[Rfam]
RNA sequence: GCGGAGGCUUGGACGGGAGCGUGCUUUAGGGCAUGAGGAAAGUCCGGGCUUCAAAGAGACAAGAUGCCAGCUAACGGCUGGGCGGGGUAACCCGACGGAAAGUGUCGCAGAAAAGAAAACUCCCGCGGCUCGCCGCGAGAAAAGCUGAAACGGUGUGGUAAGAGCGCACCAGCACCCCGGUAACGGGAUGGCUUGAUAAACCCCAUCUGAAGCAAGCGCUAAUAGGAAUGCACACGGGGCGUCUCUUCCUCGCAUUCGGGUUGCGUGCUAGAGGUGUGCGGUGACGCACAUUCGAGAUAAAUGACCGUCGCUCUGCUAUUUUUAGCAGUUCACAGAACCCGGCUUACAUGGCCUCCGCCAAA
Numbered sequence: 001g002c003g004g005a006g007g008c009u010u011g012g013a014c015g016g017g018a019g020c021g022u023g024c025u026u027u028a029g030g031g032c033a034u035g036a037g038g039a040a041a042g043u044c045c046g047g048g049c050u051u052c053a054a055a056g057a058g059a060c061a062a063g064a065u066g067c068c069a070g071c072u073a074a075c076g077g078c079u080g081g082g083c084g085g086g087g088u089a090a091c092c093c094g095a096c097g098g099a100a101a102g103u104g105u106c107g108c109a110g111a112a113a114a115g116a117a118a119a120c121u122c123c124c125g126c127g128g129c130u131c132g133c134c135g136c137g138a139g140a141a142a143a144g145c146u147g148a149a150a151c152g153g154u155g156u157g158g159u160a161a162g163a164g165c166g167c168a169c170c171a172g173c174a175c176c177c178c179g180g181u182a183a184c185g186g187g188a189u190g191g192c193u194u195g196a197u198a199a200a201c202c203c204c205a206u207c208u209g210a211a212g213c214a215a216g217c218g219c220u221a222a223u224a225g226g227a228a229u230g231c232a233c234a235c236g237g238g239g240c241g242u243c244u245c246u247u248c249c250u251c252g253c254a255u256u257c258g259g260g261u262u263g264c265g266u267g268c269u270a271g272a273g274g275u276g277u278g279c280g281g282u283g284a285c286g287c288a289c290a291u292u293c294g295a296g297a298u299a300a301a302u303g304a305c306c307g308u309c310g311c312u313c314u315g316c317u318a319u320u321u322u323u324a325g326c327a328g329u330u331c332a333c334a335g336a337a338c339c340c341g342g343c344u345u346a347c348a349u350g351g352c353c354u355c356c357g358c359c360a361a362a
Stems, first nucleotide, its partner, number of pairs: 001358009011347001012309005020035006040345003044342005049212004058244001062208005067081005082096001083094004097203002102201002104197003121140002124137005152170006172192001173190002176187004216266004226257006236250004273292008

The family of this 362-nucleotide sequence from Phoenicibacter congonensis is "Bacterial RNase P class A". By type it is a ribozyme. The family's consensus secondary structure is taken from published work. The source organism's lineage runs through Bacteria, Actinomycetota, Coriobacteriia, Eggerthellaceae and Phoenicibacter. Clan: RNaseP clan.